[Rfam]
RNA sequence: UGGAACAUGGGUGAUGGGGCUCACCUAAACCGCCUGCCAAGGCUGAUGGCUCCUGCGAACCG
Numbered sequence: 001u002g003g004a005a006c007a008u009g010g011g012u013g014a015u016g017g018g019g020c021u022c023a024c025c026u027a028a029a030c031c032g033c034c035u036g037c038c039a040a041g042g043c044u045g046a047u048g049g050c051u052c053c054u055g056c057g058a059a060c061c062g
Stems, first nucleotide, its partner, number of pairs: 010025004016053006032043004
This 62-nucleotide RNA sequence from Paenalicyclobacillus macrosporangiidus belongs to the Rfam family "Fluoride riboswitch aptamer (crcB RNA motif)". Pairs were carried over by alignment from the consensus structure, which is taken from published work. A reference for the family is Ren et al. (2012), "Fluoride ion encapsulation by Mg2+ ions and phosphates in a fluoride riboswitch", Nature.